[Rfam]
RNA sequence: AAUAGUUUUAUGCCGCAUCAGUAUUAUCAUCCUAAAUUUCAGCAUUUUCAUUUUGAAAAAAAUCAAAUCUAAAUUAAAAUGCUGAAAUUUAGGAUGAUAAUGCUGAUGCGGCAUAAAACUAUU
Numbered sequence: 001a002a003u004a005g006u007u008u009u010a011u012g013c014c015g016c017a018u019c020a021g022u023a024u025u026a027u028c029a030u031c032c033u034a035a036a037u038u039u040c041a042g043c044a045u046u047u048u049c050a051u052u053u054u055g056a057a058a059a060a061a062a063u064c065a066a067a068u069c070u071a072a073a074u075u076a077a078a079a080u081g082c083u084g085a086a087a088u089u090u091a092g093g094a095u096g097a098u099a100a101u102g103c104u105g106a107u108g109c110g111g112c113a114u115a116a117a118a119c120u121a122u123u
Stems, first nucleotide, its partner, number of pairs: 001123027029095011041083002045079004

Rfam assigns this 123-nucleotide sequence from Gossypium arboreum to the family "MIR7504 microRNA precursor family". Its family is annotated with RISC complex and miRNA-mediated post-transcriptional gene silencing in the Gene Ontology. A search with the family's covariance model found it, with a score of 118 bits.